[Rfam]
mir-14 microRNA precursor family: a 107-nucleotide RNA sequence from Lucilia cuprina. For this family Rfam cites "Direct sequencing and expression analysis of a large number of miRNAs in Aedes aegypti and a multi-species survey of novel mosquito miRNAs" (Li et al., BMC Genomics, 2009). Taxonomically the source falls in Lucilia (Eukaryota, Ecdysozoa, Neoptera, Luciliinae).
RNA sequence: UGUGGGAGCGAGAUAGGGACUUACUGUGAUUUUUAUCAAAUGCCUUUUUUCGAUUUUAACCAAAACGAAAAAUGUAUUGACAAGUCAGUCUUUUUCUCUCUCCUAUA
Numbered sequence: 001u002g003u004g005g006g007a008g009c010g011a012g013a014u015a016g017g018g019a020c021u022u023a024c025u026g027u028g029a030u031u032u033u034u035a036u037c038a039a040a041u042g043c044c045u046u047u048u049u050u051c052g053a054u055u056u057u058a059a060c061c062a063a064a065a066c067g068a069a070a071a072a073u074g075u076a077u078u079g080a081c082a083a084g085u086c087a088g089u090c091u092u093u094u095u096c097u098c099u100c101u102c103c104u105a106u107a
Stems, first nucleotide, its partner, number of pairs: 001107008010098004015093007023085003